Shown here is an 81-nucleotide RNA from Brugia malayi, a member of the family "mir-5360 microRNA precursor family". Lineage of the source: Eukaryota > Protostomia > Filarioidea > Onchocercidae > Brugia. Its family is annotated with miRNA-mediated post-transcriptional gene silencing and RISC complex in the Gene Ontology.
[Rfam]
RNA sequence: UGACCAAAGAACGAAUCGUCGAAUCGGAUGUCUGAGUUAAUUAGUCAGAGAAAUUCGAAUCGACAUUCGACCUGUGGUCAC
Numbered sequence: 001u002g003a004c005c006a007a008a009g010a011a012c013g014a015a016u017c018g019u020c021g022a023a024u025c026g027g028a029u030g031u032c033u034g035a036g037u038u039a040a041u042u043a044g045u046c047a048g049a050g051a052a053a054u055u056c057g058a059a060u061c062g063a064c065a066u067u068c069g070a071c072c073u074g075u076g077g078u079c080a081c
Base pairs, nucleotide, nucleotide: 002079003078004077005076006075008073009072012069013068014067015066016065018064019063020062021061022060024058025057026056027055028054029053031051032050033049